[Rfam]
RNA: Bacterial RNase P class A
RNA sequence: UGAGCUGGCCAGGCGGCCGCGUCGAGGGGUGACUCUCGCCGAGGAACGUCCGGGCUCCACAGGACAAGGUGGUGGCUAACGACCACCCGGGGCGACCCGCGGGACAGUGCCACAGAAAACAGACCGCCAGACGUCUCCGACGGCUGGUAAGGGUGAAACGGUGGUGUAAGAGACCACCAGCGCCCCAGGUGACUGGGGCGGCUAGGUAAACCCCACCUGGAGCAAGGUCAGACAGCAUGCGUUCGAGGGCGGUCCGCUCGAGCAUGCGGGUAGACCGCUGGAGGCGGCUGGCAACAGUCGUCGUAGAUGGAUGGUCGCCACGGCGUCGCCGGCAACAGCGGCGCCGGACAGAACCCGGCGUAUCGGCCAGCUCAUCCA
Numbered sequence: 001u002g003a004g005c006u007g008g009c010c011a012g013g014c015g016g017c018c019g020c021g022u023c024g025a026g027g028g029g030u031g032a033c034u035c036u037c038g039c040c041g042a043g044g045a046a047c048g049u050c051c052g053g054g055c056u057c058c059a060c061a062g063g064a065c066a067a068g069g070u071g072g073u074g075g076c077u078a079a080c081g082a083c084c085a086c087c088c089g090g091g092g093c094g095a096c097c098c099g100c101g102g103g104a105c106a107g108u109g110c111c112a113c114a115g116a117a118a119a120c121a122g123a124c125c126g127c128c129a130g131a132c133g134u135c136u137c138c139g140a141c142g143g144c145u146g147g148u149a150a151g152g153g154u155g156a157a158a159c160g161g162u163g164g165u166g167u168a169a170g171a172g173a174c175c176a177c178c179a180g181c182g183c184c185c186c187a188g189g190u191g192a193c194u195g196g197g198g199c200g201g202c203u204a205g206g207u208a209a210a211c212c213c214c215a216c217c218u219g220g221a222g223c224a225a226g227g228u229c230a231g232a233c234a235g236c237a238u239g240c241g242u243u244c245g246a247g248g249g250c251g252g253u254c255c256g257c258u259c260g261a262g263c264a265u266g267c268g269g270g271u272a273g274a275c276c277g278c279u280g281g282a283g284g285c286g287g288c289u290g291g292c293a294a295c296a297g298u299c300g301u302c303g304u305a306g307a308u309g310g311a312u313g314g315u316c317g318c319c320a321c322g323g324c325g326u327c328g329c330c331g332g333c334a335a336c337a338g339c340g341g342c343g344c345c346g347g348a349c350a351g352a353a354c355c356c357g358g359c360g361u362a363u364c365g366g367c368c369a370g371c372u373c374a375u376c377c378a
Base pairs, nucleotide, nucleotide: 001374002373003372004371005370006369007368008367009366010365011363012319013318014317015316016315017314018313020041021040023038024037025036026035027034028033046361047360048359050358051357052356053355054354055222056221057220058219062255063254064253065252067218068217069216070215071214072086073085074084075083087101088099089098090097091096102213103212107211108210109207110206111205124152125151126148127147128146129145130144132142133141134140160178161177162176163175164174165173180202181200182199183198184197185196186195187194188193226276227275228274229273235267236266237265238264239263240262247259248258249257250256283302284301285300286299287298288297289296290295